Rfam assigns this 79-nucleotide sequence from Culex quinquefasciatus to the family "mir-2941 microRNA precursor family". Lineage of the source: Eukaryota > Eumetazoa > Panarthropoda > Mandibulata > Culex pipiens complex. Rfam 15.1 lists 6 matches to the family in 2 species.

[Rfam]
RNA sequence: UGAUCGUACCCGUGGUGUUUAGUCGUAGUGCAUUGGUUUUUAGAACUGUAGUACGGCUAGAACUCCACGGAUAUUGGCG
Numbered sequence: 001u002g003a004u005c006g007u008a009c010c011c012g013u014g015g016u017g018u019u020u021a022g023u024c025g026u027a028g029u030g031c032a033u034u035g036g037u038u039u040u041u042a043g044a045a046c047u048g049u050a051g052u053a054c055g056g057c058u059a060g061a062a063c064u065c066c067a068c069g070g071a072u073a074u075u076g077g078c079g
Stems, first nucleotide, its partner, number of pairs: 004076001006074003010070006017063004021058007029050004
Notes
The match comes from Rfam's covariance-model search (73 bits).